[Rfam]
RNA sequence: AAGCAUCGCCUGAUAGGCCGGGAGCGAUUCCGUUUCCUCUCCGGCUUGCAUUCAGAUGCCAGAGUGACCCCUCCCUGCGCUUUCUGCCUGCCCUGAUUCCCGUAGCAGCUCAGAUUGAAUAAGGGAGAACAUUU
Numbered sequence: 001a002a003g004c005a006u007c008g009c010c011u012g013a014u015a016g017g018c019c020g021g022g023a024g025c026g027a028u029u030c031c032g033u034u035u036c037c038u039c040u041c042c043g044g045c046u047u048g049c050a051u052u053c054a055g056a057u058g059c060c061a062g063a064g065u066g067a068c069c070c071c072u073c074c075c076u077g078c079g080c081u082u083u084c085u086g087c088c089u090g091c092c093c094u095g096a097u098u099c100c101c102g103u104a105g106c107a108g109c110u111c112a113g114a115u116u117g118a119a120u121a122a123g124g125g126a127g128a129a130c131a132u133u134u
Stems, first nucleotide, its partner, number of pairs: 003059005011050002014048006022039003026034002072126005080117001083114004088108004